RNA sequence: UCCGCUCCACACGAUAGAAAUAUUGAGCAUGUGGCCAUCCAAAGGAGGAUGUAACGCCAGUAGUUGAGUUUGGUUGGGAUAUACCAAAUGUUGACUACAUCAAUGGUGU
Numbered sequence: 001u002c003c004g005c006u007c008c009a010c011a012c013g014a015u016a017g018a019a020a021u022a023u024u025g026a027g028c029a030u031g032u033g034g035c036c037a038u039c040c041a042a043a044g045g046a047g048g049a050u051g052u053a054a055c056g057c058c059a060g061u062a063g064u065u066g067a068g069u070u071u072g073g074u075u076g077g078g079a080u081a082u083a084c085c086a087a088a089u090g091u092u093g094a095c096u097a098c099a100u101c102a103a104u105g106g107u108g109u
Base pairs, nucleotide, nucleotide: 012025013024014023015022016021036051037050038049039048040047054109055108056107057106058105060098061097062096063095064094065093066092067091069088070087071086072085073084074083
Overview: Rfam assigns this 109-nucleotide sequence to the family "COG3943 RNA". The family's RNA type in Rfam is small RNA.